[Rfam]
RNA sequence: AUUUUGCGUUAGCGAUUGAAGUGGCAUCCUUUUUUAGAGUGCAACGAAGAAAAAGAUAGAACAAAAAGCGCGACCUGAA
Numbered sequence: 001a002u003u004u005u006g007c008g009u010u011a012g013c014g015a016u017u018g019a020a021g022u023g024g025c026a027u028c029c030u031u032u033u034u035u036a037g038a039g040u041g042c043a044a045c046g047a048a049g050a051a052a053a054a055g056a057u058a059g060a061a062c063a064a065a066a067a068g069c070g071c072g073a074c075c076u077g078a079a
Stems, first nucleotide, its partner, number of pairs: 012071003016067002021062002026057003032052004039045001

A member of the RNA family "Flavo-1 RNA" from Lutibacter maritimus, 79 nucleotides long. The family's RNA type in Rfam is small RNA.